[Rfam]
RNA sequence: UUAAAGAUUGGGCAAACCCGUCGAAAGGCGGAGACGCAAAGCUACAGGGGCUUCACCGGAUGGUAAGCCAGCCAGCUGCUCUC
Numbered sequence: 001u002u003a004a005a006g007a008u009u010g011g012g013c014a015a016a017c018c019c020g021u022c023g024a025a026a027g028g029c030g031g032a033g034a035c036g037c038a039a040a041g042c043u044a045c046a047g048g049g050g051c052u053u054c055a056c057c058g059g060a061u062g063g064u065a066a067g068c069c070a071g072c073c074a075g076c077u078g079c080u081c082u083c
Stems, first nucleotide, its partner, number of pairs: 012037002018031005040077004047073002049069003056063002